[Rfam]
Description:
COG3860 RNA: a 53-nucleotide RNA sequence from Histidinibacterium aquaticum. The base pairs follow the family's consensus structure, which is taken from published work. Lineage of the source: Bacteria > Alphaproteobacteria > Rhodobacterales > Paracoccaceae > Histidinibacterium.
RNA sequence: CGGUCCGCAGUUCACCGAGGCGCCGCCACCCGCAAGGGAUGCUGAACCUGCCA
Numbered sequence: 001c002g003g004u005c006c007g008c009a010g011u012u013c014a015c016c017g018a019g020g021c022g023c024c025g026c027c028a029c030c031c032g033c034a035a036g037g038g039a040u041g042c043u044g045a046a047c048c049u050g051c052c053a
Stems, first nucleotide, its partner, number of pairs: 001017004029038003